[Rfam]
RNA sequence: AUCCUCCGGUUUGUCUUCAGAGCGUAUAAAUCUUUCGCCUUUUACGAAACAUUUCCGUGGAGAGAAACAAGUACGAGUCUUAUGAAAAUUUUUGUGGCUCCAUUACGGUGGAGC
Numbered sequence: 001a002u003c004c005u006c007c008g009g010u011u012u013g014u015c016u017u018c019a020g021a022g023c024g025u026a027u028a029a030a031u032c033u034u035u036c037g038c039c040u041u042u043u044a045c046g047a048a049a050c051a052u053u054u055c056c057g058u059g060g061a062g063a064g065a066a067a068c069a070a071g072u073a074c075g076a077g078u079c080u081u082a083u084g085a086a087a088a089u090u091u092u093u094g095u096g097g098c099u100c101c102a103u104u105a106c107g108g109u110g111g112a113g114c
Stems, first nucleotide, its partner, number of pairs: 004077003009068004014063006028054004033049003096114001098113006
A member of the RNA family "U5 spliceosomal RNA" from Prunella fulvescens, 114 nucleotides long.
The family's consensus secondary structure is taken from published work.
The match comes from Rfam's covariance-model search (80 bits).
About the family: U5 RNA is a component of both types of known spliceosome.
Its family is annotated with U5 snRNP and spliceosomal tri-snRNP complex assembly in the Gene Ontology.